This 58-nucleotide RNA sequence from Corynebacterium meridianum belongs to the Rfam family "msiK RNA".

[Rfam]
RNA sequence: GGGGACGGUACUCCACUCGGAUCGUCCGGCACGUACCUGCCGGUGGAGGGAUUUCAAU
Numbered sequence: 001g002g003g004g005a006c007g008g009u010a011c012u013c014c015a016c017u018c019g020g021a022u023c024g025u026c027c028g029g030c031a032c033g034u035a036c037c038u039g040c041c042g043g044u045g046g047a048g049g050g051a052u053u054u055c056a057a058u
Stems, first nucleotide, its partner, number of pairs: 009050001011048005026043006
It is annotated as a cis-regulatory element. A search with the family's covariance model found it, with a score of 51 bits.